RNA: 6S / SsrS RNA
RNA sequence: AGAGUCCUAAAGUGUACGUAAUGAACCAAAUGUUUUGACCGAACAUUUUUUGAUCGGGAGCUUGUUGUUUCCAUCCGGAGUGCAUGCCUCUAUGAAGGACGUACAAAAGAUGGAACAGGGCACCCACCUGCUGGGAGCGGGUUUCAAAACUAGGGUUUUUAUACGGCACAGUUGGGACUCUC
Number, nucleotide and partner (000 for none) at each position: 001a000002g180003a179004g178005u177006c176007c175008u174009a173010a172011a000012g169013u168014g167015u166016a000017c165018g164019u163020a000021a000022u000023g000024a000025a000026c000027c000028a000029a000030a000031u000032g150033u149034u148035u147036u146037g145038a144039c141040c140041g000042a000043a000044c000045a000046u000047u000048u000049u000050u000051u000052g000053a000054u000055c000056g125057g124058g123059a000060g121061c120062u119063u118064g000065u000066u000067g000068u000069u000070u114071c113072c112073a111074u110075c109076c000077g000078g000079a000080g000081u000082g102083c101084a000085u000086g000087c098088c097089u096090c000091u000092a000093u000094g000095a000096a089097g088098g087099a000100c000101g083102u082103a000104c000105a000106a000107a000108a000109g075110a074111u073112g072113g071114a070115a000116c000117a000118g063119g062120g061121c060122a000123c058124c057125c056126a000127c000128c000129u000130g000131c000132u000133g000134g000135g000136a000137g000138c000139g000140g040141g039142u000143u000144u038145c037146a036147a035148a034149a033150c032151u000152a000153g000154g000155g000156u000157u000158u000159u000160u000161a000162u000163a019164c018165g017166g015167c014168a013169c012170a000171g000172u010173u009174g008175g007176g006177a005178c004179u003180c002181u000182c000